Shown here is a 266-nucleotide RNA from Ceyx cyanopectus, a member of the family "RNase MRP".
A search with the family's covariance model found it, with a score of 145 bits.

RNA sequence: GGAUGCUCUGAAGACCUGCUGGCUAGGCUAUGCACGGAGGACAUCAGUUCCUCAUGGGCCCUCGCGCCCGCCUAGGGGAAAGUCCCCGGACCGGCGGCAGAGAGUGCCGGGCGCUCCCCGCGCCUCCGCCCGCCCCGAUUCACACCCACCCCGCCGAGACGCCCCCGGGCCGAGCGGGUGAGCGCGGGGCGGGCUCUCGUCACGGUCACAGACACGCAGGUAGUGCGCAGGCGCACCAACAGAACGGGGCUCACUCUCAGGACAUC
Numbered sequence: 001g002g003a004u005g006c007u008c009u010g011a012a013g014a015c016c017u018g019c020u021g022g023c024u025a026g027g028c029u030a031u032g033c034a035c036g037g038a039g040g041a042c043a044u045c046a047g048u049u050c051c052u053c054a055u056g057g058g059c060c061c062u063c064g065c066g067c068c069c070g071c072c073u074a075g076g077g078g079a080a081a082g083u084c085c086c087c088g089g090a091c092c093g094g095c096g097g098c099a100g101a102g103a104g105u106g107c108c109g110g111g112c113g114c115u116c117c118c119c120g121c122g123c124c125u126c127c128g129c130c131c132g133c134c135c136c137g138a139u140u141c142a143c144a145c146c147c148a149c150c151c152c153g154c155c156g157a158g159a160c161g162c163c164c165c166c167g168g169g170c171c172g173a174g175c176g177g178g179u180g181a182g183c184g185c186g187g188g189g190c191g192g193g194c195u196c197u198c199g200u201c202a203c204g205g206u207c208a209c210a211g212a213c214a215c216g217c218a219g220g221u222a223g224u225g226c227g228c229a230g231g232c233g234c235a236c237c238a239a240c241a242g243a244a245c246g247g248g249g250c251u252c253a254c255u256c257u258c259a260g261g262a263c264a265u266c
Stems, first nucleotide, its partner, number of pairs: 002266004007261005014221006023075006037053005081251002084249004096108004109125006127193001129191001133189005139182004151177004161170003223236005